mir-1202 microRNA precursor family: an 80-nucleotide RNA sequence from Chlorocebus sabaeus.
[Rfam]
RNA sequence: GCUAAAGAGGUGCCAGCUGCAGUGGGGGAGGCACUGCCAGGGCUGCCUGCUCUGCAUAGUCAGCAGGAGCUGAGAACAGG
Dot-bracket structure: .((.....(((.((.(((((.((((((..((((((.....)).))))..))))))...).)))).)).)))......)).
Numbered sequence: 001g002c003u004a005a006a007g008a009g010g011u012g013c014c015a016g017c018u019g020c021a022g023u024g025g026g027g028g029a030g031g032c033a034c035u036g037c038c039a040g041g042g043c044u045g046c047c048u049g050c051u052c053u054g055c056a057u058a059g060u061c062a063g064c065a066g067g068a069g070c071u072g073a074g075a076a077c078a079g080g
Stems, first nucleotide, its partner, number of pairs: 002079002009071003013067002016064004020059001022055006030047004034042002
Gene Ontology terms of the family: miRNA-mediated post-transcriptional gene silencing and RISC complex. The match comes from Rfam's covariance-model search (82 bits). NCBI's taxonomy places the organism under Eukaryota, Chordata, Craniata, Cercopithecidae, Chlorocebus.